[Rfam]
RNA sequence: CAUCCCUUGUAAUAGCGAGCGGACCAAUGUGCAUCUCCGCAAGCCGCUCGUCUACACCGGGGGAAAGAUA
Numbered sequence: 001c002a003u004c005c006c007u008u009g010u011a012a013u014a015g016c017g018a019g020c021g022g023a024c025c026a027a028u029g030u031g032c033a034u035c036u037c038c039g040c041a042a043g044c045c046g047c048u049c050g051u052c053u054a055c056a057c058c059g060g061g062g063g064a065a066a067g068a069u070a
Stems, first nucleotide, its partner, number of pairs: 003064006015051008